[Rfam]
RNA sequence: GUCUCAUAAAGAGUGACGGAGGGAAUAGGCCCUGUGAAGUCCGGCAACCUGCUAGCAAGGUGCCAAAUCCUACAGCGCAGCUGAAAGAUGAGAA
Number, nucleotide and partner (000 for none) at each position: 001g000002u093003c092004u091005c090006a089007u088008a000009a000010a000011g000012a000013g042014u000015g041016a040017c039018g000019g000020a000021g032022g031023g030024a000025a000026u072027a071028g070029g069030c023031c022032c021033u000034g000035u000036g000037a000038a000039g017040u016041c015042c013043g064044g063045c062046a061047a000048c060049c059050u057051g056052c000053u000054a000055g000056c051057a050058a000059g049060g048061u046062g045063c044064c043065a000066a000067a000068u086069c029070c028071u027072a026073c083074a082075g081076c080077g000078c000079a000080g076081c075082u074083g073084a000085a000086a068087g000088a007089u006090g005091a004092g003093a002094a000

Overview: SAM riboswitch aptamer (S box leader): a 94-nucleotide RNA sequence from Fenollaria massiliensis. The match comes from Rfam's covariance-model search (75 bits). Lineage of the source: Bacteria > Bacillota > Clostridia > Eubacteriales > Fenollaria. A reference for the family is Grundy and Henkin (1998), "The S box regulon: a new global transcription termination control system for methionine and cysteine biosynthesis genes in gram-positive bacteria", Mol Microbiol. The base pairs follow the family's consensus structure, which is taken from published work.